[Rfam]
RNA: Small nucleolar RNA SNORA28
Organism: Suricata suricatta
RNA sequence: AAGUGUUUUAUUGACAGAUGAUCAAAGUUGUCUGAUGCAAUUUGAGCUUGCUUUAGCAAGAAAGUCUAACCUAUUCCAAUGUUCUCCUCCAUGAGACCGUUAUAUAGACUUACACAGU
Numbered sequence: 001a002a003g004u005g006u007u008u009u010a011u012u013g014a015c016a017g018a019u020g021a022u023c024a025a026a027g028u029u030g031u032c033u034g035a036u037g038c039a040a041u042u043u044g045a046g047c048u049u050g051c052u053u054u055a056g057c058a059a060g061a062a063a064g065u066c067u068a069a070c071c072u073a074u075u076c077c078a079a080u081g082u083u084c085u086c087c088u089c090c091a092u093g094a095g096a097c098c099g100u101u102a103u104a105u106a107g108a109c110u111u112a113c114a115c116a117g118u
Stems, first nucleotide, its partner, number of pairs: 009046001011044001012039002015034006062111007072104003077099001083096004